[Rfam]
The family of this 72-nucleotide RNA from Skermanella aerolata is "Makes More Granules Regulator RNA (mmgR)". NCBI's taxonomy places the organism under Bacteria, Pseudomonadota, Rhodospirillales, Azospirillaceae, Skermanella. The base pairs follow the family's consensus structure. The family's RNA type in Rfam is small RNA.
RNA sequence: UUGUAUCGCCUUAUCGGGCGUUUCCUCCCUAAACUCAGGUCGCCCUUCGGGGCGGCCUUUUUUUAAUUUAUG
Dot-bracket structure: .......((((....)))).................(((((((((....)))))))))..............
SuhB later renamed mmgR (makes more granules regulator) was a putative non-coding RNA found multiple times in the Agrobacterium tumefaciens genome and related alpha-proteobacteria.